[Rfam]
A member of the RNA family "Small nucleolar RNA U109" from Menidia menidia, 159 nucleotides long.
The family's consensus secondary structure was predicted with WAR.
On this family, see Gu et al., Nucleic Acids Res 2005: "A novel experimental approach for systematic identification of box H/ACA snoRNAs from eukaryotes".

RNA sequence: AUGCAUGUUAUGGCAGAAUGCCAUUUUCAGCCUCUUUCUAGAAAUAUAGAAAGAGGACAAAUAAAAACAUGCUAGAUGAAAUUCAAAACACUUGGGAGUUAACAGGGCCACCAGUCUUUCAAGUACAGACUGAGUAGGUAGUAUAAUACUCCCACAAUC
Numbered sequence: 001a002u003g004c005a006u007g008u009u010a011u012g013g014c015a016g017a018a019u020g021c022c023a024u025u026u027u028c029a030g031c032c033u034c035u036u037u038c039u040a041g042a043a044a045u046a047u048a049g050a051a052a053g054a055g056g057a058c059a060a061a062u063a064a065a066a067a068c069a070u071g072c073u074a075g076a077u078g079a080a081a082u083u084c085a086a087a088a089c090a091c092u093u094g095g096g097a098g099u100u101a102a103c104a105g106g107g108c109c110a111c112c113a114g115u116c117u118u119u120c121a122a123g124u125a126c127a128g129a130c131u132g133a134g135u136a137g138g139u140a141g142u143a144u145a146a147u148a149c150u151c152c153c154a155c156a157a158u159c
Stems, first nucleotide, its partner, number of pairs: 003072006031056008095152004107139002111134001112132006